[Rfam]
The record is a 78-nucleotide RNA sequence from Rhodopirellula sp. MGV, which matches "c-di-GMP-I-GGC riboswitch aptamer" in Rfam. Gene Ontology term of the family: cyclic-di-GMP binding. It scores 72 bits against the family's covariance model. The source organism's lineage runs through Bacteria, Pseudomonadati, Pirellulales, Pirellulaceae and Rhodopirellula. Rfam 15.1 lists 1,298 matches to the family in 717 species.
RNA sequence: CCAGAUAAAGGCAAACCGUCCGCAAGGUCGGGGCGCAAAGCUACGGGCCCUUUCGCGAGGGCAGCCGGGCUGCCGAGG
Numbered sequence: 001c002c003a004g005a006u007a008a009a010g011g012c013a014a015a016c017c018g019u020c021c022g023c024a025a026g027g028u029c030g031g032g033g034c035g036c037a038a039a040g041c042u043a044c045g046g047g048c049c050c051u052u053u054c055g056c057g058a059g060g061g062c063a064g065c066c067g068g069g070c071u072g073c074c075g076a077g078g
Stems, first nucleotide, its partner, number of pairs: 001078001004074001011036002016031003020027002034064001039071004044067003047062003